RNA: SAH (S-adenosyl-L-homocysteine) riboswitch aptamer
Organism: Chiayiivirga flava
RNA sequence: CCCGUCGAGGGGCGCUGCGACCGUCGCCCCGAGCACGGCCAGGCUCGACGCGACCCCAUCUCAACCGCGCCCGGACCGC
Number, nucleotide and partner (000 for none) at each position: 001c000002c000003c050004g049005u048006c047007g046008a045009g000010g000011g000012g000013c000014g000015c000016u000017g000018c000019g000020a000021c038022c037023g036024u035025c000026g034027c033028c000029c000030c000031g000032a000033g027034c026035a024036c023037g022038g021039c000040c000041a000042g000043g000044c000045u008046c007047g006048a005049c004050g003051c000052g000053a000054c000055c000056c000057c000058a000059u000060c000061u000062c000063a000064a000065c000066c000067g000068c000069g000070c000071c000072c000073g000074g000075a000076c000077c000078g000079c000